[Rfam]
RNA sequence: UGACGGAAAGAUACCACAAGACGUGGAGUCUGCGGCUCAAUUUGACUCAACACGCAAAUCUUACCAGACCCAGAUGCUUUACGGAGCAACAGAUUAAGAGUUCUUUUGCGAUUGGGCAGUUGGUGGUGCAUGGCCGCUCCUAGUUCGUGGUGUAAACUGUCUGCCUUAUUGCGUUAACGAGCGAGACAACCACCCCCAGCCUGGGGGGAGCGCCUGCGUUGAGCAGGACGAACGUGGUUGCUCUAGCAGGUCUGUGAUGCCCUUAGACACUCUGGGCCGCACGCGUACUACAAUGUCGGCUGCACAGCGUCGCCCGCCUGAAGGCCCGGCCAUUCGUGUGAACCGCCGACGUGGUAGGGAUCGGAGAUUGGAAUUUUUCUCGUGAACGAGGAAUGUCUUGUAGGUCUGCGUUAUUAGCGCGGGGCUGACUAUGUCCCUGUCUUUUGUACACACCGCCCGUCGCUCCUACCGACUUGGAUGUUUUGGUGAGUUGUCCAGAGUGCGCGUCGCGGCAUGCACGAAGUUCUGCGAACCCCAAUGUCUGGAGGAAGGAGAAGUCAUAACAAGGCUGCUGUAGGGGAACCUGCAGCCGGAUCAUUA
Numbered sequence: 001u002g003a004c005g006g007a008a009a010g011a012u013a014c015c016a017c018a019a020g021a022c023g024u025g026g027a028g029u030c031u032g033c034g035g036c037u038c039a040a041u042u043u044g045a046c047u048c049a050a051c052a053c054g055c056a057a058a059u060c061u062u063a064c065c066a067g068a069c070c071c072a073g074a075u076g077c078u079u080u081a082c083g084g085a086g087c088a089a090c091a092g093a094u095u096a097a098g099a100g101u102u103c104u105u106u107u108g109c110g111a112u113u114g115g116g117c118a119g120u121u122g123g124u125g126g127u128g129c130a131u132g133g134c135c136g137c138u139c140c141u142a143g144u145u146c147g148u149g150g151u152g153u154a155a156a157c158u159g160u161c162u163g164c165c166u167u168a169u170u171g172c173g174u175u176a177a178c179g180a181g182c183g184a185g186a187c188a189a190c191c192a193c194c195c196c197c198a199g200c201c202u203g204g205g206g207g208g209a210g211c212g213c214c215u216g217c218g219u220u221g222a223g224c225a226g227g228a229c230g231a232a233c234g235u236g237g238u239u240g241c242u243c244u245a246g247c248a249g250g251u252c253u254g255u256g257a258u259g260c261c262c263u264u265a266g267a268c269a270c271u272c273u274g275g276g277c278c279g280c281a282c283g284c285g286u287a288c289u290a291c292a293a294u295g296u297c298g299g300c301u302g303c304a305c306a307g308c309g310u311c312g313c314c315c316g317c318c319u320g321a322a323g324g325c326c327c328g329g330c331c332a333u334u335c336g337u338g339u340g341a342a343c344c345g346c347c348g349a350c351g352u353g354g355u356a357g358g359g360a361u362c363g364g365a366g367a368u369u370g371g372a373a374u375u376u377u378u379c380u381c382g383u384g385a386a387c388g389a390g391g392a393a394u395g396u397c398u399u400g401u402a403g404g405u406c407u408g409c410g411u412u413a414u415u416a417g418c419g420c421g422g423g424g425c426u427g428a429c430u431a432u433g434u435c436c437c438u439g440u441c442u443u444u445u446g447u448a449c450a451c452a453c454c455g456c457c458c459g460u461c462g463c464u465c466c467u468a469c470c471g472a473c474u475u476g477g478a479u480g481u482u483u484u485g486g487u488g489a490g491u492u493g494u495c496c497a498g499a500g501u502g503c504g505c506g507u508c509g510c511g512g513c514a515u516g517c518a519c520g521a522a523g524u525u526c527u528g529c530g531a532a533c534c535c536c537a538a539u540g541u542c543u544g545g546a547g548g549a550a551g552g553a554g555a556a557g558u559c560a561u562a563a564c565a566a567g568g569c570u571g572c573u574g575u576a577g578g579g580g581a582a583c584c585u586g587c588a589g590c591c592g593g594a595u596c597a598u599u600a
Stems, first nucleotide, its partner, number of pairs: 001450002003447003007444007016434002020397005025291001027289003031285004035280002041056001043054002064275005075118005088107002091104003122263002125261004131257001132255001133251003136247003143182006149158003162173003188239004193207006213227005295350006307337003312330002316325003357387001362382002365380003403426003406422005453567001455564001459559001461557001463554005469548002473544001476543007485534003490529002493526001496523001500519005506513002569592001571590008
Rfam assigns this 600-nucleotide part of an RNA from Hexamita sp. to the family "Eukaryotic small subunit ribosomal RNA". Lineage of the source: Eukaryota > Metamonada > Hexamitidae > Hexamitinae > Hexamita. The family's consensus secondary structure is taken from published work. Its family is annotated with ribosome and structural constituent of ribosome in the Gene Ontology.